[Rfam]
RNA sequence: CGGGGGAAACCCGGCCGAGGGAACUCGGCAAACUGGCCCCGUAACUUCGGGAGAAGGGGUGCCUGCGGGUGCGUAACCCGCAGGUCGCAGUGACUAGGGGGGCCCGACUGUUUAAUAAAAACACAGGUCCCAGCUAGCCCGAAAGGGUUUGUACUGGGGCCGACGCCUGCCCAGUGCCGGUAUGUGAAGCCCGGGUACAACCGGGUGAAGCACCGGUAAACGGCGGGGGUAACUAUAACCCUCUUAAGGUAGCGAAAUUCCUUGUCGGUUAAAUGCCGACCUGCAUGAAUGGCGUAACGAGGUCCCCGCUGUCCCCGGCCGGGGCCCGGCGAAACCUCUGCCUGGCGCGCAUGCCAGGGA
Dot-bracket structure: ((((.....((((((((.(((..............(((((....(....).....)))))(((((((((.......)))))))))(...).......(((((((((..(((.........)))..(((((((((..((((....))))..)..))))))))..((((.(((..(((((((..(((....(((((......)))))....))))))))..)))))((((((.......))))))(...)...............((((((.....))))))..........))))...)).)))))))....))).)))))))).))))............(((((........)))))..
Shown here is a 360-nucleotide part of an RNA from Pyrococcus horikoshii, a member of the family "Archaeal large subunit ribosomal RNA". The family's consensus secondary structure is taken from published work. The sequence is in the family's curated seed alignment.